[Rfam]
RNA sequence: UGGGCCGUCGCCAAGUGGUAAGGCAGCGGGUUUUGGUCCCGCCAUUCCUAGGUUCGAAUCCUAGCGGCCCAG
Numbered sequence: 001u002g003g004g005c006c007g008u009c010g011c012c013a014a015g016u017g018g019u020a021a022g023g024c025a026g027c028g029g030g031u032u033u034u035g036g037u038c039c040c041g042c043c044a045u046u047c048c049u050a051g052g053u054u055c056g057a058a059u060c061c062u063a064g065c066g067g068c069c070c071a072g
Base pairs, nucleotide, nucleotide: 001071002070003069004068005067006066007065010024011023012022026042027041028040029039030038048064049063050062051061052060